[Rfam]
RNA sequence: GGGGACGAUUGGUUUCGACGGUGAUCUGUUCGCUUCGGUGAAGCAUGCCGAGAAUGUAGAGUCCACUCGUGAUGUUCUCUGCAAUUAAAUUAAGUGCUAAAUCUAAUCGCACUGAGUUUGCCCUCGCUGCCUGAUUUUAAACGUAAUCAGAUUUAAAUCAGCGAGCUGGCGCUCCAUCUGCUCUCUCGUGUCUUCGGGGAGAGGCCAGGUGUCGUAAGAAGACUUACUCAUGCAGUUGAACUGCAGGACUGCGUGAGGACAUUGUACUGCGGCUAGGCUCGCCAUCAGUUGUCUGCGGCAUUGAUGGGAGCCGAAAAUAUGCCUUUCGGGUCAGCAGACUAAGCAUGUAGAAGAACGAGGGUACGGUCACCGGACCGGGGUUCAAUCCCCCGCGUCUCCACAA
Numbered sequence: 001g002g003g004g005a006c007g008a009u010u011g012g013u014u015u016c017g018a019c020g021g022u023g024a025u026c027u028g029u030u031c032g033c034u035u036c037g038g039u040g041a042a043g044c045a046u047g048c049c050g051a052g053a054a055u056g057u058a059g060a061g062u063c064c065a066c067u068c069g070u071g072a073u074g075u076u077c078u079c080u081g082c083a084a085u086u087a088a089a090u091u092a093a094g095u096g097c098u099a100a101a102u103c104u105a106a107u108c109g110c111a112c113u114g115a116g117u118u119u120g121c122c123c124u125c126g127c128u129g130c131c132u133g134a135u136u137u138u139a140a141a142c143g144u145a146a147u148c149a150g151a152u153u154u155a156a157a158u159c160a161g162c163g164a165g166c167u168g169g170c171g172c173u174c175c176a177u178c179u180g181c182u183c184u185c186u187c188g189u190g191u192c193u194u195c196g197g198g199g200a201g202a203g204g205c206c207a208g209g210u211g212u213c214g215u216a217a218g219a220a221g222a223c224u225u226a227c228u229c230a231u232g233c234a235g236u237u238g239a240a241c242u243g244c245a246g247g248a249c250u251g252c253g254u255g256a257g258g259a260c261a262u263u264g265u266a267c268u269g270c271g272g273c274u275a276g277g278c279u280c281g282c283c284a285u286c287a288g289u290u291g292u293c294u295g296c297g298g299c300a301u302u303g304a305u306g307g308g309a310g311c312c313g314a315a316a317a318u319a320u321g322c323c324u325u326u327c328g329g330g331u332c333a334g335c336a337g338a339c340u341a342a343g344c345a346u347g348u349a350g351a352a353g354a355a356c357g358a359g360g361g362u363a364c365g366g367u368c369a370c371c372g373g374a375c376c377g378g379g380g381u382u383c384a385a386u387c388c389c390c391c392g393c394g395u396c397u398c399c400a401c402a403a
Stems, first nucleotide, its partner, number of pairs: 001399007019372008033360005039354001044347005049069004055083007129152001131150006175211006181203007190223006227257009241272004276312005282307004287302003291339004298332001376392005
A member of the RNA family "transfer-messenger RNA" from Bifidobacterium canis, 403 nucleotides long.
Rfam classes the family as a non-coding RNA gene.
Lineage of the source: Bacteria > Actinomycetota > Actinomycetes > Bifidobacteriaceae > Bifidobacterium.